Rfam assigns this 134-nucleotide sequence from Carlito syrichta to the family "Small nucleolar RNA SNORA64/SNORA10 family". A search with the family's covariance model found it, with a score of 89 bits. Pairs were carried over by alignment from the consensus structure, which is taken from published work.

RNA sequence: CCUCUUUCAUCUCUGCUUGGUUACACUUGGCUUCACACGUGUGACUUUCAUAAUGGGGAGAGAGAGAAAAGACCUCCUGGGGACCUGGGACUGGCCAUACUGUGACUUCUCUUUCCUUGAGGGGUACAACAAGU
Dot-bracket structure: .(((((((..(((((...((((((((............)))))))).......))))).))))))).......(((((.(((.....(((..((.(.......).))..)))...))).)))))..........
Its family is annotated with RNA processing and nucleolus in the Gene Ontology. Rfam describes the family as follows. This family belongs to the H/ACA class of small nucleolar RNAs (snoRNAs) which act as guides in the the modification of uridines to pseudouridines. This family includes the human snoRNAs U64 and ACA10 and mouse MBI-29.